[Rfam]
RNA sequence: AAAAACGAGGGGGUGUAGGGGAUGAAAUCCCCCGCUCGAUUUAGCAAGGUGCUCAGGCUGCAAAACAGCCGUCGAAGGAAAU
Dot-bracket structure: ..............((.(((((.....))))).))....................(((((.....)))))............
Numbered sequence: 001a002a003a004a005a006c007g008a009g010g011g012g013g014u015g016u017a018g019g020g021g022a023u024g025a026a027a028u029c030c031c032c033c034g035c036u037c038g039a040u041u042u043a044g045c046a047a048g049g050u051g052c053u054c055a056g057g058c059u060g061c062a063a064a065a066c067a068g069c070c071g072u073c074g075a076a077g078g079a080a081a082u
Stems, first nucleotide, its partner, number of pairs: 015035002018032005056070005
Shown here is an 82-nucleotide sequence from Alkaliphilus metalliredigens, a member of the family "Clostridiales-2 RNA". The sequence is in the family's curated seed alignment. Lineage of the source: Bacteria > Clostridia > Peptostreptococcales > Alkaliphilus > Alkaliphilus metalliredigens. The family's RNA type in Rfam is small RNA.